[Rfam]
RNA sequence: GCUCCAUUCGUCUAUCGGUUAGGACGCUGGCCUCUCACGCCGGAAAGAGCGGUUCGAUUCCGCUAUGGAGCG
Numbered sequence: 001g002c003u004c005c006a007u008u009c010g011u012c013u014a015u016c017g018g019u020u021a022g023g024a025c026g027c028u029g030g031c032c033u034c035u036c037a038c039g040c041c042g043g044a045a046a047g048a049g050c051g052g053u054u055c056g057a058u059u060c061c062g063c064u065a066u067g068g069a070g071c072g
Stems, first nucleotide, its partner, number of pairs: 001071007010025004027043005048064005
RNA: tRNA